[Rfam]
RNA sequence: GUUUGCCUGUGUGUGGAAGGUGUUCAGCACCAAGGACAGGCAUGUUUAGCUGUGUGUGGAUGGCGUUCAGCACCAAGGACAGCUGUGUUUGUGU
Dot-bracket structure: ...((.((((........((((((.(((.(((.(.((((..(....)..)))).).....))).))).))))))....)))).)).........
The family of this 94-nucleotide RNA from Branchiostoma belcheri is "mir-2060 microRNA precursor family". Taxonomically the source falls in Branchiostoma (Eukaryota, Opisthokonta, Eumetazoa, Bilateria). The match comes from Rfam's covariance-model search (83 bits). Gene Ontology terms of the family: RISC complex and miRNA-mediated post-transcriptional gene silencing.